[Rfam]
RNA sequence: GUCGGUCUUCUGCGGCGUGUAGUUGAUGAAGGCGAAGCCGCGGGCCUGGUCGAUGAUGUGGAACAGCGGGUUCCACAGGAACCAGGGCAGCAUGAUGUUCGGCAGCACGUUGGCCACGAACAUCUUGCCCGAGGCGAACAUGUUGACGCGCUG
Numbered sequence: 001g002u003c004g005g006u007c008u009u010c011u012g013c014g015g016c017g018u019g020u021a022g023u024u025g026a027u028g029a030a031g032g033c034g035a036a037g038c039c040g041c042g043g044g045c046c047u048g049g050u051c052g053a054u055g056a057u058g059u060g061g062a063a064c065a066g067c068g069g070g071u072u073c074c075a076c077a078g079g080a081a082c083c084a085g086g087g088c089a090g091c092a093u094g095a096u097g098u099u100c101g102g103c104a105g106c107a108c109g110u111u112g113g114c115c116a117c118g119a120a121c122a123u124c125u126u127g128c129c130c131g132a133g134g135c136g137a138a139c140a141u142g143u144u145g146a147c148g149c150g151c152u153g
Stems, first nucleotide, its partner, number of pairs: 002035003006032004013025003037057001039055002041052003064153005070082004086147001088145007098134002100131003103127003107123001110119003
The family of this 153-nucleotide sequence from Paracoccus sigandri is "Ruegeria cis2 sRNA". On this family, see Rivers et al., Front Microbiol 2016: "Experimental Identification of Small Non-Coding RNAs in the Model Marine Bacterium Ruegeria pomeroyi DSS-3".